Shown here is an 88-nucleotide RNA from Branchiostoma floridae, a member of the family "mir-2060 microRNA precursor family".
Nucleotides: 088
Base pairs, nucleotide, nucleotide: 001078003076004073012069013068014067015066016065017064018063020061021060022059023058024057025056026055028049030047031046032045033044035042
Number, partner (000 for none) and nucleotide at each position: 001078g002000c003076c004073a005000g006000u007000g008000u009000g010000g011000a012069u013068g014067g015066u016065g017064u018063u019000c020061a021060g022059c023058a024057c025056c026055a027000g028049g029000g030047a031046c032045a033044g034000a035042c036000c037000g038000u039000u040000a041000u042035g043000c044033c045032u046031g047030u048000g049028u050000a051000u052000g053000g054000a055026u056025g057024g058023u059022g060021u061020u062000c063018a064017g065016c066015a067014c068013c069012a070000g071000g072000g073004u074000c075000a076003g077000a078001c079000c080000g081000u082000u083000c084000u085000g086000c087000c088000u
Background
Lineage of the source: Eukaryota > Deuterostomia > Leptocardii > Branchiostomatidae > Branchiostoma.